[Rfam]
RNA sequence: CUGUUAAGCCUCAAUUAAGCUUUGGGUGUUAGCUUCUCAUUAUUCAGAUUGUUCUGAAUUUUUCAGAGUGGUUUUCCCUCUGUUUGACGCCUCCCUGUUAACUUCGAGAGCUGCAUUCCAUGCGGCUCUUUUUCU
Numbered sequence: 001c002u003g004u005u006a007a008g009c010c011u012c013a014a015u016u017a018a019g020c021u022u023u024g025g026g027u028g029u030u031a032g033c034u035u036c037u038c039a040u041u042a043u044u045c046a047g048a049u050u051g052u053u054c055u056g057a058a059u060u061u062u063u064c065a066g067a068g069u070g071g072u073u074u075u076c077c078c079u080c081u082g083u084u085u086g087a088c089g090c091c092u093c094c095c096u097g098u099u100a101a102c103u104u105c106g107a108g109a110g111c112u113g114c115a116u117u118c119c120a121u122g123c124g125g126c127u128c129u130u131u132u133u134c135u
Stems, first nucleotide, its partner, number of pairs: 012032001016031003021026001043058004066080003070076002086099004106130011

Record summary: Alphaproteobacterial sRNA BjrC1505: a 135-nucleotide RNA sequence from Devosia aurantiaca. By type it is a small RNA. The literature on the family includes a 2012 paper in RNA Biol by Madhugiri et al., "Small RNAs of the Bradyrhizobium/Rhodopseudomonas lineage and their analysis". It scores 55 bits against the family's covariance model.